[Rfam]
RNA sequence: AAGCUGGAUGAUGAAGAGCUCGUCUCGUACAUCCUCACCGGGCUCGAUCUGGAGUACAACCCCGUCGUUUCCGCUGUCUCCGCCAGAGUCGAGCCGAUCACCGUUGGUGAGUUAUACACCCAGCUAGUUUUAUGC
Number, nucleotide and partner (000 for none) at each position: 001a000002a000003g000004c134005u000006g000007g131008a130009u000010g000011a000012u000013g000014a000015a000016g000017a000018g000019c000020u000021c000022g000023u000024c000025u000026c000027g000028u000029a000030c000031a000032u000033c000034c000035u000036c000037a000038c000039c000040g000041g000042g000043c000044u000045c000046g000047a000048u000049c000050u000051g000052g000053a000054g000055u000056a000057c000058a000059a000060c000061c000062c000063c000064g000065u000066c000067g000068u000069u000070u000071c000072c000073g000074c000075u000076g000077u000078c000079u000080c000081c000082g000083c000084c000085a000086g000087a000088g000089u000090c000091g000092a000093g108094c107095c106096g105097a104098u103099c000100a000101c000102c000103g098104u097105u096106g095107g094108u093109g000110a000111g000112u000113u000114a000115u000116a000117c000118a000119c000120c000121c000122a000123g000124c000125u000126a000127g000128u000129u000130u008131u007132a000133u000134g004135c000
RNA: Small nucleolar RNA Z247